This 90-nucleotide RNA sequence from Streptomyces toyocaensis belongs to the Rfam family "Streptomyces RNA 3202". NCBI's taxonomy places the organism under Bacteria, Bacillati, Kitasatosporales, Streptomycetaceae, Streptomyces. About the family: Identified by deep sequencing of transcriptome at the end of exponential growth phase. Appears smaller on northern blot than sequencing transcript. This indicates processing step. By type it is a small RNA. On this family, see Vockenhuber et al., RNA Biol 2011: "Deep sequencing-based identification of small non-coding RNAs in Streptomyces coelicolor".
RNA sequence: CCACGUCCCGACGCACAACCCCCCCGGCGCCGGGACGUCCCAAGGCCGGGUUCGGCGCCCCUCCCCCCGGGCGCCGGGCCCGGCUUUUCU
Numbered sequence: 001c002c003a004c005g006u007c008c009c010g011a012c013g014c015a016c017a018a019c020c021c022c023c024c025c026g027g028c029g030c031c032g033g034g035a036c037g038u039c040c041c042a043a044g045g046c047c048g049g050g051u052u053c054g055g056c057g058c059c060c061c062u063c064c065c066c067c068c069g070g071g072c073g074c075c076g077g078g079c080c081c082g083g084c085u086u087u088u089c090u
Stems, first nucleotide, its partner, number of pairs: 005036006012029003043086018